[Rfam]
RNA: Eukaryotic large subunit ribosomal RNA, nucleotides 692 to 973
Organism: Theileria orientalis
RNA sequence: GAGUCUAACACUCGUGCAAGUGUUUGGGUGUCAAACCCGUACGCCAAAUGAAAGUGAAAGCAUGGCCUUUCAGUUUUUUCUGAAACUCACAUGCGGCCGGUCGCCUUUUGGUGGAUUGCGCAGGAGCAUGAUUGUUAGGACCCGAAAGAUGGUGAACUAUGCCUGGGUAGGAUGAAGUCAGGCGAAAGCCUGAUGGAGGUCCGCAGCGAUACUGACGUGCAAAUCGUUCGUCAAACCUGGGUAUAGGGGCGAAAGACUAAUCGAACCAUCUAGUAGCUGGUU
Numbered sequence: 001g002a003g004u005c006u007a008a009c010a011c012u013c014g015u016g017c018a019a020g021u022g023u024u025u026g027g028g029u030g031u032c033a034a035a036c037c038c039g040u041a042c043g044c045c046a047a048a049u050g051a052a053a054g055u056g057a058a059a060g061c062a063u064g065g066c067c068u069u070u071c072a073g074u075u076u077u078u079u080c081u082g083a084a085a086c087u088c089a090c091a092u093g094c095g096g097c098c099g100g101u102c103g104c105c106u107u108u109u110g111g112u113g114g115a116u117u118g119c120g121c122a123g124g125a126g127c128a129u130g131a132u133u134g135u136u137a138g139g140a141c142c143c144g145a146a147a148g149a150u151g152g153u154g155a156a157c158u159a160u161g162c163c164u165g166g167g168u169a170g171g172a173u174g175a176a177g178u179c180a181g182g183c184g185a186a187a188g189c190c191u192g193a194u195g196g197a198g199g200u201c202c203g204c205a206g207c208g209a210u211a212c213u214g215a216c217g218u219g220c221a222a223a224u225c226g227u228u229c230g231u232c233a234a235a236c237c238u239g240g241g242u243a244u245a246g247g248g249g250c251g252a253a254a255g256a257c258u259a260a261u262c263g264a265a266c267c268a269u270c271u272a273g274u275a276g277c278u279g280g281u282u
Stems, first nucleotide, its partner, number of pairs: 005138006012131006020044003025039005048055002060094005068085005096121002098118003101114005141280002144277001148270006157246011168234001170202004177194007206231004211227002214225002248258002